[Rfam]
RNA sequence: AAGUAAAUACAUGGCAGAGAGUCGUUUCUAACAAAAACUAACAAUUGUUAUUGCUGUCUAAGCUUCAAAAGGGUAAUUUUAAAAUGGGAAGUUAAAGAACAAUUGGAGGAUGACGAUGUGAGCACUAAAGCA
Numbered sequence: 001a002a003g004u005a006a007a008u009a010c011a012u013g014g015c016a017g018a019g020a021g022u023c024g025u026u027u028c029u030a031a032c033a034a035a036a037a038c039u040a041a042c043a044a045u046u047g048u049u050a051u052u053g054c055u056g057u058c059u060a061a062g063c064u065u066c067a068a069a070a071g072g073g074u075a076a077u078u079u080u081a082a083a084a085u086g087g088g089a090a091g092u093u094a095a096a097g098a099a100c101a102a103u104u105g106g107a108g109g110a111u112g113a114c115g116a117u118g119u120g121a122g123c124a125c126u127a128a129a130g131c132a
Stems, first nucleotide, its partner, number of pairs: 018126002021123001042105006048098002057089002